[Rfam]
RNA: Small nucleolar RNA Z43
RNA sequence: GGGCAAUGACGAUGUCAAGUGAUAAGGUCUCGUUCGUCGUAACGGUGACUAACAAUCACCUUGCCGACCAUCCUGUUAUAUCACCACCCAUAAACUGAGUCC
Numbered sequence: 001g002g003g004c005a006a007u008g009a010c011g012a013u014g015u016c017a018a019g020u021g022a023u024a025a026g027g028u029c030u031c032g033u034u035c036g037u038c039g040u041a042a043c044g045g046u047g048a049c050u051a052a053c054a055a056u057c058a059c060c061u062u063g064c065c066g067a068c069c070a071u072c073c074u075g076u077u078a079u080a081u082c083a084c085c086a087c088c089c090a091u092a093a094a095c096u097g098a099g100u101c102c
Base pairs, nucleotide, nucleotide: 001102002101003100004099047062048061
Dot-bracket structure: ((((..........................................((............))....................................))))